[Rfam]
RNA sequence: CGGGGCGUAGCGCAGCGGCUAGCGCACCUGCCUUGGGAGCAGGGGGCCGGAGGUUCGAAUCCUCUCGCCCCGA
Numbered sequence: 001c002g003g004g005g006c007g008u009a010g011c012g013c014a015g016c017g018g019c020u021a022g023c024g025c026a027c028c029u030g031c032c033u034u035g036g037g038a039g040c041a042g043g044g045g046g047c048c049g050g051a052g053g054u055u056c057g058a059a060u061c062c063u064c065u066c067g068c069c070c071c072g073a
Stems, first nucleotide, its partner, number of pairs: 001072007010025004027043005049065005